RNA sequence: UUAAGUGAGUAAAGCUAAAGCGAUAUGGCAUUUGCUAGCAAAUGUGCCAUAUCGCUUUAAUUUUACGAAUAAACACCGUGAGGAAGUAGCACGGUAGUGCGGAUUCCGAAUGGUGUUUAGGAUUACGAAAGCGAAGCGGAGUAAUCCGCACUUAA
Numbered sequence: 001u002u003a004a005g006u007g008a009g010u011a012a013a014g015c016u017a018a019a020g021c022g023a024u025a026u027g028g029c030a031u032u033u034g035c036u037a038g039c040a041a042a043u044g045u046g047c048c049a050u051a052u053c054g055c056u057u058u059a060a061u062u063u064u065a066c067g068a069a070u071a072a073a074c075a076c077c078g079u080g081a082g083g084a085a086g087u088a089g090c091a092c093g094g095u096a097g098u099g100c101g102g103a104u105u106c107c108g109a110a111u112g113g114u115g116u117u118u119a120g121g122a123u124u125a126c127g128a129a130a131g132c133g134a135a136g137c138g139g140a141g142u143a144a145u146c147c148g149c150a151c152u153u154a155a
Stems, first nucleotide, its partner, number of pairs: 001155007010065004016059014030043005072117008082107004089100004120147007131137002
Dot-bracket structure: (((((((..((((..(((((((((((((((((((....)))))..))))))))))))))..))))......((((((((..((((...((((....))))...))))..))))))))..(((((((....((...))...))))))).)))))))